[Rfam]
RNA sequence: GUCGGUCCUCGGUAGUGAUCUCCGGGCUCAUUCUCCCGUGGAUCUCGAUCGAAGACCGGA
Number, nucleotide and partner (000 for none) at each position: 001g000002u059003c058004g057005g056006u055007c054008c000009u052010c051011g050012g049013u048014a000015g000016u000017g044018a043019u042020c041021u040022c000023c038024g037025g036026g035027c000028u000029c000030a000031u000032u000033c000034u000035c026036c025037c024038g023039u000040g021041g020042a019043u018044c017045u000046c000047g000048a013049u012050c011051g010052a009053a000054g007055a006056c005057c004058g003059g002060a000
This 60-nucleotide sequence belongs to the Rfam family "Actino-pnp RNA".